RNA sequence: UGAUCCUUUAAAUUGACCCAGAGAGGUUGGUAAGGAUUAAGGCAAAACUUUUAAUAAUGUUUUAGUAUAUUAAUAUUGUAUAUAAAGAUUAAAAUGCCUUCUUAUCAACCGAUAAGAAGGCAUUUUUUA
Numbered sequence: 001u002g003a004u005c006c007u008u009u010a011a012a013u014u015g016a017c018c019c020a021g022a023g024a025g026g027u028u029g030g031u032a033a034g035g036a037u038u039a040a041g042g043c044a045a046a047a048c049u050u051u052u053a054a055u056a057a058u059g060u061u062u063u064a065g066u067a068u069a070u071u072a073a074u075a076u077u078g079u080a081u082a083u084a085a086a087g088a089u090u091a092a093a094a095u096g097c098c099u100u101c102u103u104a105u106c107a108a109c110c111g112a113u114a115a116g117a118a119g120g121c122a123u124u125u126u127u128u129a
Base pairs, nucleotide, nucleotide: 003037004036005035006034007033008032013030014029015028016027017026018025059089060088061087062086063085065083066082067081068080069079092125093124094123095122096121097120098119099118100117101116102115103114104113105112
Dot-bracket structure: ..((((((....((((((......)))))).)))))).....................(((((.(((((.........))))).)))))..((((((((((((((......))))))))))))))....

The family of this 129-nucleotide sequence from Caldisalinibacter kiritimatiensis is "PyrR binding site". The match comes from Rfam's covariance-model search (57 bits). About the family: This family represents the PyrR binding site and terminator structure. This RNA structure is found upstream of a variety of genes involved in pyrimidine biosynthesis and transport. The alignment also includes a portion of the antiterminator structure. On this family, see Bonner et al., Nucleic Acids Res 2001: "Molecular recognition of pyr mRNA by the Bacillus subtilis attenuation regulatory protein PyrR".